[Rfam]
RNA sequence: GGAUUGGUGAUGCCUCAAAAAAUCAUGUCACGAAAAUCUGAACAAAAUGAGUGAAAAAUCCCAUGACUAUGGGUUAUCUAUAACUGAAGUUC
Numbered sequence: 001g002g003a004u005u006g007g008u009g010a011u012g013c014c015u016c017a018a019a020a021a022a023u024c025a026u027g028u029c030a031c032g033a034a035a036a037u038c039u040g041a042a043c044a045a046a047a048u049g050a051g052u053g054a055a056a057a058a059u060c061c062c063a064u065g066a067c068u069a070u071g072g073g074u075u076a077u078c079u080a081u082a083a084c085u086g087a088a089g090u091u092c
Stems, first nucleotide, its partner, number of pairs: 001092005024053003028049001032043001
Dot-bracket structure: (((((..................(((.(...(..........).....).)))..................................)))))